RAGATH-28 RNA: an 83-nucleotide RNA. The family's RNA type in Rfam is small RNA. It is one of the family's seed sequences.

RNA sequence: GGCGGAUUGAUUCGUCUCCGCCCGAUGCAACGGCUGACAUACGGCGAAGUCACCGAUAACCUCAGGUUAGCGGAUGGCGAAGC
Numbered sequence: 001g002g003c004g005g006a007u008u009g010a011u012u013c014g015u016c017u018c019c020g021c022c023c024g025a026u027g028c029a030a031c032g033g034c035u036g037a038c039a040u041a042c043g044g045c046g047a048a049g050u051c052a053c054c055g056a057u058a059a060c061c062u063c064a065g066g067u068u069a070g071c072g073g074a075u076g077g078c079g080a081a082g083c
Base pairs, nucleotide, nucleotide: 001022002021003020004019005018006017053073054072055071057069058068059067060066